[Rfam]
RNA: Purine riboswitch aptamer
Organism: Gracilibacillus halotolerans
RNA sequence: AAGCGUAAGAUAAUGAAAACACGUAUAAGUUAGUUAAUAGGGAACUAGCGUAUCUACUUAGCAACCGUAAAUUGCUAAACUAUGUGGGGAUAACCUCCUCGG
Numbered sequence: 001a002a003g004c005g006u007a008a009g010a011u012a013a014u015g016a017a018a019a020c021a022c023g024u025a026u027a028a029g030u031u032a033g034u035u036a037a038u039a040g041g042g043a044a045c046u047a048g049c050g051u052a053u054c055u056a057c058u059u060a061g062c063a064a065c066c067g068u069a070a071a072u073u074g075c076u077a078a079a080c081u082a083u084g085u086g087g088g089g090a091u092a093a094c095c096u097c098c099u100c101g102g
Stems, first nucleotide, its partner, number of pairs: 020086006029049007058078007